[Rfam]
RNA sequence: UUGGUUUAAAUCAUUCUGGAUCUACACUUUGAAAAUUGAACCUACAUAAAAUGGUGGGACAUACAAUGAUUUAAACUAA
Numbered sequence: 001u002u003g004g005u006u007u008a009a010a011u012c013a014u015u016c017u018g019g020a021u022c023u024a025c026a027c028u029u030u031g032a033a034a035a036u037u038g039a040a041c042c043u044a045c046a047u048a049a050a051a052u053g054g055u056g057g058g059a060c061a062u063a064c065a066a067u068g069a070u071u072u073a074a075a076c077u078a079a
Stems, first nucleotide, its partner, number of pairs: 001079015017063002022057003025053002028050004
RNA: MIR5269 microRNA precursor family